[Rfam]
RNA sequence: UGGCACACUGGAAGCCACAAUUCAGGGGCGGUAGCGUG
Numbered sequence: 001u002g003g004c005a006c007a008c009u010g011g012a013a014g015c016c017a018c019a020a021u022u023c024a025g026g027g028g029c030g031g032u033a034g035c036g037u038g
Stems, first nucleotide, its partner, number of pairs: 008025005
RNA: JUMPstart RNA
Organism: Pleionea mediterranea